DUF805 RNA: a 69-nucleotide RNA from Myroides guanonis. NCBI's taxonomy places the organism under Bacteria, Pseudomonadati, Bacteroidota, Flavobacteriia, Myroides. The family is grouped with related families in Rfam's "DUF805 clan".
[Rfam]
RNA sequence: CAAAAGUAAAGUCCAGAGAUUACUAAAUAAACGGGGCGUCAUCCGAAAAGCCAUACGAGUAGGAAAAAC
Numbered sequence: 001c002a003a004a005a006g007u008a009a010a011g012u013c014c015a016g017a018g019a020u021u022a023c024u025a026a027a028u029a030a031a032c033g034g035g036g037c038g039u040c041a042u043c044c045g046a047a048a049a050g051c052c053a054u055a056c057g058a059g060u061a062g063g064a065a066a067a068a069c
Base pairs, nucleotide, nucleotide: 006023007022008021009020035052036051037050042063043062